The family of this 91-nucleotide RNA sequence from Rhodococcus gordoniae is "Selenocysteine transfer RNA". A reference for the family is Mizutani and Goto (2000), "Eukaryotic selenocysteine tRNA has the 9/4 secondary structure", FEBS Lett. Rfam 15.1 lists 4,211 matches to the family in 3,344 species.
[Rfam]
RNA sequence: GGAGGUGGUUCUCGUCUGGUGACGGUCGCGGUCUUCAAAACCGUUGUGGCCCAGUAUCUGGGCUGGGCGGGUUCGAUUCCCGUCCGCCUCC
Numbered sequence: 001g002g003a004g005g006u007g008g009u010u011c012u013c014g015u016c017u018g019g020u021g022a023c024g025g026u027c028g029c030g031g032u033c034u035u036c037a038a039a040a041c042c043g044u045u046g047u048g049g050c051c052c053a054g055u056a057u058c059u060g061g062g063c064u065g066g067g068c069g070g071g072u073u074c075g076a077u078u079c080c081c082g083u084c085c086g087c088c089u090c091c
Stems, first nucleotide, its partner, number of pairs: 001091008012025005028044005047065005068082004